[Rfam]
Nucleotides: 086
Base pairs, nucleotide, nucleotide: 012037013036017032018031019030020029021028022027040080041079042078043077047076048075049072050071051070056067057066058065059064
Number, partner (000 for none) and nucleotide at each position: 001000a002000a003000a004000a005000a006000u007000a008000a009000u010000u011000a012037g013036c014000a015000a016000a017032a018031c019030u020029g021028g022027u023000g024000a025000a026000a027022g028021c029020u030019a031018g032017u033000g034000a035000c036013g037012c038000a039000a040080a041079g042078c043077u044000a045000c046000a047076g048075g049072g050071a051070u052000u053000u054000c055000u056067c057066u058065c059064u060000a061000a062000a063000a064059a065058g066057a067056g068000g069000u070051g071050u072049c073000a074000g075048c076047c077043a078042g079041c080040u081000g082000c083000a084000u085000g086000a